[Rfam]
RNA sequence: AUGAUACAAUGAUGAAAAAUCUUGUUUUAUUUUUACAGUUAUCCCUGUCAGAGUAAAAACAAUUCCUGUUGAGAAAUUUACUUCUGAGUAUCAU
Numbered sequence: 001a002u003g004a005u006a007c008a009a010u011g012a013u014g015a016a017a018a019a020u021c022u023u024g025u026u027u028u029a030u031u032u033u034u035a036c037a038g039u040u041a042u043c044c045c046u047g048u049c050a051g052a053g054u055a056a057a058a059a060c061a062a063u064u065c066c067u068g069u070u071g072a073g074a075a076a077u078u079u080a081c082u083u084c085u086g087a088g089u090a091u092c093a094u
Stems, first nucleotide, its partner, number of pairs: 001094007
RNA: Small nucleolar RNA R38
Organism: Orbilia oligospora